[Rfam]
RNA: SAM (S-adenosyl methionine) riboswitch aptamer
RNA sequence: GGUCAUGAGUGCCAGCGUCAGGCCCCGGCGUGCUGGCCGGCAACCCUCCUCCGCGGUGGGGUGCCCCGGGUGAAGACCUGGCCGGUGGAUGCCGAUCGUCCCCCGGCAAGCGCGGAUC
Numbered sequence: 001g002g003u004c005a006u007g008a009g010u011g012c013c014a015g016c017g018u019c020a021g022g023c024c025c026c027g028g029c030g031u032g033c034u035g036g037c038c039g040g041c042a043a044c045c046c047u048c049c050u051c052c053g054c055g056g057u058g059g060g061g062u063g064c065c066c067c068g069g070g071u072g073a074a075g076a077c078c079u080g081g082c083c084g085g086u087g088g089a090u091g092c093c094g095a096u097c098g099u100c101c102c103c104c105g106g107c108a109a110g111c112g113c114g115g116a117u118c
Base pairs, nucleotide, nucleotide: 001078002077003076004075009038011037012036013035014034015033016032022029039065040064041063044061045060046059048056049055081107082106083105084104085103087101088100089099090098